Shown here is a 127-nucleotide RNA sequence from Methanotorris igneus, a member of the family "HgcC family RNA". The family's consensus secondary structure was predicted with RNAalifold. About the family: The HgcC ncRNA gene was identified computationally in AT-rich hyperthermophiles. The genes were named hgcA through hgcG ('high GC'). HgcC is of unknown function. Two other homologues were detected called HhcA and HhcB after 'homologue of hgcC'. This family contains a large number of putative archaeal matches to the 3' end of the known ncRNAs. Many of these partly overlap coding regions. The organism belongs to Methanotorris igneus, within Archaea. Rfam classes the family as a non-coding RNA gene. The family has 5 seed sequences and 10 matches in Rfam 15.1.
RNA sequence: GAAGGCUGCCUGACCCAGCCUGAUGAACAUAACCUGCCCAAUGACGCCUCGGCGACGAGGAUGAGAGGGUGUUCCCCAUGGGAACCUCCGCCCUUUAGGCGGAGAGGAGGUCAGCUUCCCAGUAAUU
Numbered sequence: 001g002a003a004g005g006c007u008g009c010c011u012g013a014c015c016c017a018g019c020c021u022g023a024u025g026a027a028c029a030u031a032a033c034c035u036g037c038c039c040a041a042u043g044a045c046g047c048c049u050c051g052g053c054g055a056c057g058a059g060g061a062u063g064a065g066a067g068g069g070u071g072u073u074c075c076c077c078a079u080g081g082g083a084a085c086c087u088c089c090g091c092c093c094u095u096u097a098g099g100c101g102g103a104g105a106g107g108a109g110g111u112c113a114g115c116u117u118c119c120c121a122g123u124a125a126u127u
Stems, first nucleotide, its partner, number of pairs: 003021006036070004047060005071085005086104007